[Rfam]
The family of this 76-nucleotide RNA sequence from Trifolium subterraneum is "Small nucleolar RNA Z155". Gene Ontology terms of the family: RNA processing and nucleolus. The base pairs follow the family's consensus structure.
RNA sequence: CAUUGAUAUGAUGAUAACCUUUUCUGAAUUUCAUAAAUGUUGUAUUUAUAAACAGACUACAAUUAUCUGAUCAUUG
Numbered sequence: 001c002a003u004u005g006a007u008a009u010g011a012u013g014a015u016a017a018c019c020u021u022u023u024c025u026g027a028a029u030u031u032c033a034u035a036a037a038u039g040u041u042g043u044a045u046u047u048a049u050a051a052a053c054a055g056a057c058u059a060c061a062a063u064u065a066u067c068u069g070a071u072c073a074u075u076g
Stems, first nucleotide, its partner, number of pairs: 001076002004073003